[Rfam]
Rfam assigns this 71-nucleotide sequence from Peromyscus maniculatus to the family "mir-503 microRNA precursor family". It scores 86 bits against the family's covariance model. Rfam links the family to the GO terms RISC complex and miRNA-mediated post-transcriptional gene silencing. For this family Rfam cites "Identification of hundreds of conserved and nonconserved human microRNAs" (Bentwich et al., Nat Genet, 2005). Pairs were carried over by alignment from the consensus structure, which was predicted with RNAalifold. NCBI's taxonomy places the organism under Eukaryota, Opisthokonta, Bilateria, Muroidea, Peromyscus maniculatus.

RNA sequence: UGCCCUAGCAGCGUGAACAGUACUGCAGUGAGUGUUUGGUGCCCUGAAGUAUUGUUUCCGCUGCCUGGGUA
Number, nucleotide and partner (000 for none) at each position: 001u000002g070003c069004c068005c067006u000007a000008g064009c063010a062011g061012c060013g059014u000015g057016a056017a055018c054019a053020g052021u051022a000023c049024u048025g000026c046027a045028g044029u000030g000031a000032g042033u041034g040035u000036u000037u000038g000039g000040u034041g033042c032043c000044c028045u027046g026047a000048a024049g023050u000051a021052u020053u019054g018055u017056u016057u015058c000059c013060g012061c011062u010063g009064c008065c000066u000067g005068g004069g003070u002071a000